[Rfam]
RNA sequence: GCCUUAUCAAGAGUGGUAGAGGGACUAGGCCCUAUGAAGCCCGGCAACCGGUAUGUUUACACGGUGCUAAAUCCUACAGAAUGUAUUUCUGAAAGAUGAGGA
Numbered sequence: 001g002c003c004u005u006a007u008c009a010a011g012a013g014u015g016g017u018a019g020a021g022g023g024a025c026u027a028g029g030c031c032c033u034a035u036g037a038a039g040c041c042c043g044g045c046a047a048c049c050g051g052u053a054u055g056u057u058u059a060c061a062c063g064g065u066g067c068u069a070a071a072u073c074c075u076a077c078a079g080a081a082u083g084u085a086u087u088u089c090u091g092a093a094a095g096a097u098g099a100g101g102a
Stems, first nucleotide, its partner, number of pairs: 002101007013042001015041003021032003026076004043068004048064002050060001053057001072094001077091005
A member of the RNA family "SAM riboswitch aptamer (S box leader)" from Crassaminicella thermophila, 102 nucleotides long. The family is grouped with related families in Rfam's "SAM clan". Lineage of the source: Bacteria > Bacillota > Clostridia > Eubacteriales > Crassaminicella.